[Rfam]
RNA sequence: CGCAGAGUAGAUAAGAUGCGUUAAGUGUUAAAGGAUGGGAAGUUGCCUUUAAACGAAAACGAAAGUUGCGGUAUCUUAUUGCGUCCGCUGUG
Numbered sequence: 001c002g003c004a005g006a007g008u009a010g011a012u013a014a015g016a017u018g019c020g021u022u023a024a025g026u027g028u029u030a031a032a033g034g035a036u037g038g039g040a041a042g043u044u045g046c047c048u049u050u051a052a053a054c055g056a057a058a059a060c061g062a063a064a065g066u067u068g069c070g071g072u073a074u075c076u077u078a079u080u081g082c083g084u085c086c087g088c089u090g091u092g
Stems, first nucleotide, its partner, number of pairs: 001092005010080009019070003025054002028052007038086003042082001058067003